[Rfam]
RNA sequence: UUUCAAAUAACUAUGCAAACAUAAACACACACAACAUAAUGGAAAAACGACUAUCUCUUCGACUGCUUCUGUUAUCGCAUUUCGUGCGAGGAUAAAGGUCGUUCGGAGUGAAAGCGUUCACUAUCCACACUUUGCCCGCACAUUGAUGCGGGUUUUUUUUACUUAUA
Numbered sequence: 001u002u003u004c005a006a007a008u009a010a011c012u013a014u015g016c017a018a019a020c021a022u023a024a025a026c027a028c029a030c031a032c033a034a035c036a037u038a039a040u041g042g043a044a045a046a047a048c049g050a051c052u053a054u055c056u057c058u059u060c061g062a063c064u065g066c067u068u069c070u071g072u073u074a075u076c077g078c079a080u081u082u083c084g085u086g087c088g089a090g091g092a093u094a095a096a097g098g099u100c101g102u103u104c105g106g107a108g109u110g111a112a113a114g115c116g117u118u119c120a121c122u123a124u125c126c127a128c129a130c131u132u133u134g135c136c137c138g139c140a141c142a143u144u145g146a147u148g149c150g151g152g153u154u155u156u157u158u159u160u161a162c163u164u165a166u167a
Stems, first nucleotide, its partner, number of pairs: 012023004040127004046118004051114002054111002057108006063101001065099004070094004075089006134153007
RNA: Actinobacillus sRNA 14
Organism: Actinobacillus pleuropneumoniae